[Rfam]
RNA sequence: CCGGUUCCGGUUCACACCGAUGGCAUUCUGCCCGGUGACCCGGCGACC
Numbered sequence: 001c002c003g004g005u006u007c008c009g010g011u012u013c014a015c016a017c018c019g020a021u022g023g024c025a026u027u028c029u030g031c032c033c034g035g036u037g038a039c040c041c042g043g044c045g046a047c048c
Stems, first nucleotide, its partner, number of pairs: 003048003007043004015037005022032004

Record summary: L31-Actinobacteria ribosomal protein leader: a 48-nucleotide RNA sequence from Gordonia malaquae. On this family, see Eckert and Weinberg, BMC Microbiol 2020: "Discovery of 20 novel ribosomal leader candidates in bacteria and archaea". Rfam's curators put it in the seed alignment. The source organism's lineage runs through Bacteria, Actinomycetes, Mycobacteriales, Gordoniaceae and Gordonia malaquae.